[Rfam]
RNA sequence: UUCGCGCAUGUCUGUAAGUCGCUUUGGAUAAAAGCAUCUGCUAAAUGGCAUGUG
Numbered sequence: 001u002u003c004g005c006g007c008a009u010g011u012c013u014g015u016a017a018g019u020c021g022c023u024u025u026g027g028a029u030a031a032a033a034g035c036a037u038c039u040g041c042u043a044a045a046u047g048g049c050a051u052g053u054g
Base pairs, nucleotide, nucleotide: 013043014041015040016039021035022034023033024032025031
RNA: UnaL2 LINE 3' element